Small nucleolar RNA Z157/R69/R10: a 95-nucleotide RNA from Protea cynaroides. Rfam 15.1 lists 836 matches to the family in 232 species.
RNA sequence: AUCUGUGCGGUAAUGAAGCUAUUGUGGACUAGAGUUUCUGAUCUGGGCAUCGACCCAGAAACGGAAGAUAAGCCCUUGGCUGUCUGAGCACUUCU
Numbered sequence: 001a002u003c004u005g006u007g008c009g010g011u012a013a014u015g016a017a018g019c020u021a022u023u024g025u026g027g028a029c030u031a032g033a034g035u036u037u038c039u040g041a042u043c044u045g046g047g048c049a050u051c052g053a054c055c056c057a058g059a060a061a062c063g064g065a066a067g068a069u070a071a072g073c074c075c076u077u078g079g080c081u082g083u084c085u086g087a088g089c090a091c092u093u094c095u
Stems, first nucleotide, its partner, number of pairs: 001095001005091004035066004042059006

The family's RNA type in Rfam is C/D-box small nucleolar RNA. The base pairs follow the family's consensus structure, which was predicted with PFOLD. Its Rfam clan is "SNORD52 clan". The match comes from Rfam's covariance-model search (64 bits). For this family Rfam cites "The high diversity of snoRNAs in plants: identification and comparative study of 120 snoRNA genes from Oryza sativa" (Chen et al., Nucleic Acids Res, 2003).